UnaL2 LINE 3' element: a 54-nucleotide RNA from Coregonus sp. 'balchen'. Rfam's curators write: The eel long interspersed element (LINE) UnaL2 and its partner short interspersed element (SINE) share a conserved 3' tail containing a stem-loop that is critical for their retrotransposition. Rfam 15.1 lists 493,311 matches to the family in 99 species. Its family is annotated with transposition, RNA-mediated in the Gene Ontology. It is annotated as a cis-regulatory element. On this family, see Baba et al., RNA 2004: "Solution structure of an RNA stem-loop derived from the 3' conserved region of eel LINE UnaL2".
RNA sequence: UGUAUGCAUGACUGUAAGUAGCUUUGGAUAAAAGCGUCUGCUAAAUGGCUUAUA
Numbered sequence: 001u002g003u004a005u006g007c008a009u010g011a012c013u014g015u016a017a018g019u020a021g022c023u024u025u026g027g028a029u030a031a032a033a034g035c036g037u038c039u040g041c042u043a044a045a046u047g048g049c050u051u052a053u054a
Stems, first nucleotide, its partner, number of pairs: 013043001014041003021035005